[Rfam]
RNA sequence: ACGCCAGAAAGGAGGUGGUCCAGACAAUGAUCGACAGUUAUCGGACCGGCGAGGUGACUGUCCGCUAGGACGCCCCCGUCUAGGCCUCCGCCUGGAUGUCGGUGACGUCCCGGCGAAUCCACAGCAGGCACCGGACCCCGGGCAGCCGGUGGCCGAGCACGCUCUCGGCCCAGGUCCAACCGGCCCGCCUCCGGCGGAAGCGCGCCCGGGGUUCUUCACGC
Numbered sequence: 001a002c003g004c005c006a007g008a009a010a011g012g013a014g015g016u017g018g019u020c021c022a023g024a025c026a027a028u029g030a031u032c033g034a035c036a037g038u039u040a041u042c043g044g045a046c047c048g049g050c051g052a053g054g055u056g057a058c059u060g061u062c063c064g065c066u067a068g069g070a071c072g073c074c075c076c077c078g079u080c081u082a083g084g085c086c087u088c089c090g091c092c093u094g095g096a097u098g099u100c101g102g103u104g105a106c107g108u109c110c111c112g113g114c115g116a117a118u119c120c121a122c123a124g125c126a127g128g129c130a131c132c133g134g135a136c137c138c139c140g141g142g143c144a145g146c147c148g149g150u151g152g153c154c155g156a157g158c159a160c161g162c163u164c165u166c167g168g169c170c171c172a173g174g175u176c177c178a179a180c181c182g183g184c185c186c187g188c189c190u191c192c193g194g195c196g197g198a199a200g201c202g203c204g205c206c207c208g209g210g211g212u213u214c215u216u217c218a219c220g221c
Base pairs, nucleotide, nucleotide: 014062015061016060017059018058019057063115064114065113066112068110069109071107072106074104076102077101078100133214134213135212136211137210138209139208140207141206142205143204145195146194147193148192149191
Shown here is a 221-nucleotide RNA sequence from Thermobispora bispora, a member of the family "Actinobacteria sRNA Ms_IGR-5". It is annotated as a small RNA. The source organism's lineage runs through Bacteria, Bacillati, Streptosporangiales, Streptosporangiaceae and Thermobispora bispora. For this family Rfam cites "Identification of small RNAs in Mycobacterium smegmatis using heterologous Hfq" (Li et al., RNA, 2013).